[Rfam]
RNA sequence: CCAGCAUUCCCAGGUAGGCCAGGGUGUCCUACAGAAAAACCUUGGGUCGCACCUUUGGGGGUUCUGG
Number, nucleotide and partner (000 for none) at each position: 001c067002c066003a065004g064005c000006a063007u000008u061009c060010c059011c058012a000013g000014g056015u000016a054017g053018g052019c045020c044021a043022g042023g041024g040025u039026g032027u031028c000029c000030u000031a027032c026033a000034g000035a000036a000037a000038a000039a025040c024041c023042u022043u021044g020045g019046g000047u000048c000049g000050c000051a000052c018053c017054u016055u000056u014057g000058g011059g010060g009061g008062u000063u006064c004065u003066g002067g001
About this RNA:
MAT2A 3'UTR stem loop E: a 67-nucleotide sequence from Ornithorhynchus anatinus. NCBI's taxonomy places the organism under Eukaryota, Metazoa, Sarcopterygii, Monotremata, Ornithorhynchus. A reference for the family is Parker et al. (2011), "New families of human regulatory RNA structures identified by comparative analysis of vertebrate genomes", Genome Res.